[Rfam]
RNA sequence: ACUCAAAGUAGCCCCUCCUGAUGAUUCCUUCUUCCUGAGAGGCUCUAGUGAUGAGCAAACUAAGCCUCUAAGAAGUUGACUGAAGGGGCUGCUUCCUC
Numbered sequence: 001a002c003u004c005a006a007a008g009u010a011g012c013c014c015c016u017c018c019u020g021a022u023g024a025u026u027c028c029u030u031c032u033u034c035c036u037g038a039g040a041g042g043c044u045c046u047a048g049u050g051a052u053g054a055g056c057a058a059a060c061u062a063a064g065c066c067u068c069u070a071a072g073a074a075g076u077u078g079a080c081u082g083a084a085g086g087g088g089c090u091g092c093u094u095c096c097u098c
Base pairs, nucleotide, nucleotide: 007093008092009091010090011089012088013087014086015085
The family of this 98-nucleotide sequence from Cavia porcellus is "Small nucleolar RNA SNORD125". The source organism's lineage runs through Eukaryota, Metazoa, Amniota, Eutheria and Cavia. Pairs were carried over by alignment from the consensus structure, which was predicted with WAR. A reference for the family is Yang et al. (2006), "snoSeeker: an advanced computational package for screening of guide and orphan snoRNA genes in the human genome", Nucleic Acids Res. By type it is a C/D-box small nucleolar RNA. A search with the family's covariance model found it, with a score of 106 bits.